[Rfam]
RNA sequence: AAGCAACACUCUGUAGUAAGCAUCUAGUUGCCUGCUGCAAUUUACGCUUGCUAGAAUAGAAAAGUCUAACCUAUUCCAGGGGUCUCUGAUUUGUGAGGUCACCUGUUAUAUAGACUUGGACAAU
Numbered sequence: 001a002a003g004c005a006a007c008a009c010u011c012u013g014u015a016g017u018a019a020g021c022a023u024c025u026a027g028u029u030g031c032c033u034g035c036u037g038c039a040a041u042u043u044a045c046g047c048u049u050g051c052u053a054g055a056a057u058a059g060a061a062a063a064g065u066c067u068a069a070c071c072u073a074u075u076c077c078a079g080g081g082g083u084c085u086c087u088g089a090u091u092u093g094u095g096a097g098g099u100c101a102c103c104u105g106u107u108a109u110a111u112a113g114a115c116u117u118g119g120a121c122a123a124u
Stems, first nucleotide, its partner, number of pairs: 009046001012039004017034002020031003062117007072110003077105004085098003

This 124-nucleotide RNA sequence from Hippolais icterina belongs to the Rfam family "Small nucleolar RNA SNORA28". Rfam describes the family as follows. ACA28 is a member of the H/ACA class of snoRNA that guide the sites of modification of uridines to pseudouridines. Its Rfam clan is "SNORA28 clan".